[Rfam]
RNA sequence: CCGAACAAAGGCAAACCCGUCGUGAGACGGGGACGCAAAGCCAUGGGUCUCCGCUGCCGCGGACGUUGAGUUGGCCGGUACCAACGCCACGUCGCGGCAGAGAUCGCCAGGCCGCUCGAG
Numbered sequence: 001c002c003g004a005a006c007a008a009a010g011g012c013a014a015a016c017c018c019g020u021c022g023u024g025a026g027a028c029g030g031g032g033a034c035g036c037a038a039a040g041c042c043a044u045g046g047g048u049c050u051c052c053g054c055u056g057c058c059g060c061g062g063a064c065g066u067u068g069a070g071u072u073g074g075c076c077g078g079u080a081c082c083a084a085c086g087c088c089a090c091g092u093c094g095c096g097g098c099a100g101a102g103a104u105c106g107c108c109a110g111g112c113c114g115c116u117c118g119a120g
Base pairs, nucleotide, nucleotide: 001120003117004116011036012035016031017030018029019028020027021026034106040112041111042110044109045108046107047104048103049102050101051100
Overview:
The family of this 120-nucleotide RNA sequence is "c-di-GMP-I-GGC riboswitch aptamer". Rfam links the family to the GO term cyclic-di-GMP binding. The match comes from Rfam's covariance-model search (66 bits).